Shown here is a 102-nucleotide RNA from Virgibacillus necropolis, a member of the family "Purine riboswitch aptamer".
It scores 85 bits against the family's covariance model.
RNA sequence: UUCAUUCUAUAUCGCUACACUCAUAUAAUCGCGGAAAUAAGGUCCGCAAGUUUCUACCGGUUUACCGUAAAAAAACCGACUAUGGGUGCAAUGAAUGAAUAA
Numbered sequence: 001u002u003c004a005u006u007c008u009a010u011a012u013c014g015c016u017a018c019a020c021u022c023a024u025a026u027a028a029u030c031g032c033g034g035a036a037a038u039a040a041g042g043u044c045c046g047c048a049a050g051u052u053u054c055u056a057c058c059g060g061u062u063u064a065c066c067g068u069a070a071a072a073a074a075a076c077c078g079a080c081u082a083u084g085g086g087u088g089c090a091a092u093g094a095a096u097g098a099a100u101a102a
Base pairs, nucleotide, nucleotide: 018088019087020086021085022084023083024082025081029049031047032046033045034044035043058078059077060076061075062074063073
Lineage of the source: Bacteria > Bacilli > Caryophanales > Bacillaceae > Virgibacillus.